Rfam assigns this 72-nucleotide RNA from Apolygus lucorum to the family "mir-190 microRNA precursor family". Lineage of the source: Eukaryota > Ecdysozoa > Arthropoda > Eumetabola > Apolygus. A reference for the family is Bar et al. (2008), "MicroRNA discovery and profiling in human embryonic stem cells by deep sequencing of small RNA libraries", Stem Cells. Rfam 15.1 lists 1,667 matches to the family in 854 species. The family's consensus secondary structure was predicted with RNAalifold. Its Rfam clan is "mir-50 clan".
RNA sequence: GUUCCUGUAAGAUAUGUUUGAUAUUCUUGGUUGUUGGUAGUCAACCAGGGAUCAAACAUAUUAUACAGUGAC
Numbered sequence: 001g002u003u004c005c006u007g008u009a010a011g012a013u014a015u016g017u018u019u020g021a022u023a024u025u026c027u028u029g030g031u032u033g034u035u036g037g038u039a040g041u042c043a044a045c046c047a048g049g050g051a052u053c054a055a056a057c058a059u060a061u062u063a064u065a066c067a068g069u070g071a072c
Base pairs, nucleotide, nucleotide: 005068006067007066008065009064011062012061013060014059015058016057017056018055019054020053021052022051024049025048029046030045031044032043033042